[Rfam]
RNA sequence: ACUCAACAUUAAUUUGAUUAAAAAGGGUGAGUUUAGAUUAUAAAAGAAUGCCUUGCUUGUACAAGGAACCUUGAGUAGUCUGUUAGCCCUAAACCUGUUUAUUGGAGUUU
Numbered sequence: 001a002c003u004c005a006a007c008a009u010u011a012a013u014u015u016g017a018u019u020a021a022a023a024a025g026g027g028u029g030a031g032u033u034u035a036g037a038u039u040a041u042a043a044a045a046g047a048a049u050g051c052c053u054u055g056c057u058u059g060u061a062c063a064a065g066g067a068a069c070c071u072u073g074a075g076u077a078g079u080c081u082g083u084u085a086g087c088c089c090u091a092a093a094c095c096u097g098u099u100u101a102u103u104g105g106a107g108u109u110u
Stems, first nucleotide, its partner, number of pairs: 024090005035081005044072003051066004

A member of the RNA family "6S-Flavo RNA" from Maribacter algarum, 110 nucleotides long. Rfam classes the family as a small RNA. Lineage of the source: Bacteria > Bacteroidota > Flavobacteriia > Flavobacteriaceae > Maribacter.